Shown here is a 187-nucleotide RNA from Parathalassolituus penaei, a member of the family "Manganese Mn2+ riboswitch aptamer (yybP-ykoY)". The family has 29 seed sequences and 1,126 matches in Rfam 15.1. The literature on the family includes a 2001 paper in Curr Biol by Argaman et al., "Novel small RNA-encoding genes in the intergenic regions of Escherichia coli". The organism belongs to Parathalassolituus, within Bacteria. This RNA was originally discovered in E. coli during a large scale screen and was named SraF. The family was later found to exist upstream of related families of protein genes in many bacteria, including the the yybP and ykoK genes in B. subtilis. The specific functions of these proteins are unknown, but this structured RNA element may be involved in their genetic regulation as a riboswitch.
RNA sequence: CCGUCACUCUUGGGGGAGUAGUCUGACACCUGUUCAGUGAAACACGUGUCGUGUGCGUCAACAUUCUUGAGCCUCAUUGCUCAUGGCGUACACAGCCCAUCGCGGUUUGACGAGACCUGAGACAAACAUCCGGGGCACUUUAACGAGGGCGGCCUCCGGGUUUGUCUCUGGUUAUUCGCCGCCCCCG
Numbered sequence: 001c002c003g004u005c006a007c008u009c010u011u012g013g014g015g016g017a018g019u020a021g022u023c024u025g026a027c028a029c030c031u032g033u034u035c036a037g038u039g040a041a042a043c044a045c046g047u048g049u050c051g052u053g054u055g056c057g058u059c060a061a062c063a064u065u066c067u068u069g070a071g072c073c074u075c076a077u078u079g080c081u082c083a084u085g086g087c088g089u090a091c092a093c094a095g096c097c098c099a100u101c102g103c104g105g106u107u108u109g110a111c112g113a114g115a116c117c118u119g120a121g122a123c124a125a126a127c128a129u130c131c132g133g134g135g136c137a138c139u140u141u142a143a144c145g146a147g148g149g150c151g152g153c154c155u156c157c158g159g160g161u162u163u164g165u166c167u168c169u170g171g172u173u174a175u176u177c178g179c180c181g182c183c184c185c186c187g
Stems, first nucleotide, its partner, number of pairs: 025050005051093010068083005100187001